Rfam assigns this 79-nucleotide RNA sequence from Drosophila grimshawi to the family "mir-970 microRNA precursor family". A search with the family's covariance model found it, with a score of 80 bits.

[Rfam]
RNA sequence: CUGUUGUAGCCUGCGUAUGUUUUAUUUGGUAGUUGUAACUAAAAUCGAAUCUAUCAUAAGACACACGCGGCUAUCACAG
Numbered sequence: 001c002u003g004u005u006g007u008a009g010c011c012u013g014c015g016u017a018u019g020u021u022u023u024a025u026u027u028g029g030u031a032g033u034u035g036u037a038a039c040u041a042a043a044a045u046c047g048a049a050u051c052u053a054u055c056a057u058a059a060g061a062c063a064c065a066c067g068c069g070g071c072u073a074u075c076a077c078a079g
Base pairs, nucleotide, nucleotide: 001079002078003077004076006074008072009071010070011069013068014067015066018063019062021061022060023059027056028055029054030053031052